[Rfam]
RNA: Potassium channel RNA editing signal
RNA sequence: GUGGGAUAUGGAGACAUGGUGCCCACAACAAUUGGAGGCAAGAUCGUAGGAUCCCUGUGUGCAAUUGCUGGUGUCUUGACCAUCGCCUUGCCCGUGCCUGUGAUUGUCUCCAAC
Number, nucleotide and partner (000 for none) at each position: 001g114002u113003g000004g111005g110006a000007u000008a107009u106010g105011g104012a000013g000014a101015c100016a099017u000018g097019g000020u000021g095022c094023c000024c000025a000026c000027a000028a000029c000030a000031a000032u000033u000034g000035g000036a000037g077038g076039c000040a074041a000042g000043a000044u000045c000046g000047u000048a000049g000050g062051a000052u000053c000054c000055c000056u000057g000058u000059g000060u000061g000062c050063a000064a000065u000066u000067g000068c000069u000070g000071g000072u000073g000074u040075c000076u038077u037078g000079a000080c000081c000082a000083u000084c000085g000086c000087c000088u000089u000090g000091c000092c000093c000094g022095u021096g000097c018098c000099u016100g015101u014102g000103a000104u011105u010106g009107u008108c000109u000110c005111c004112a000113a002114c001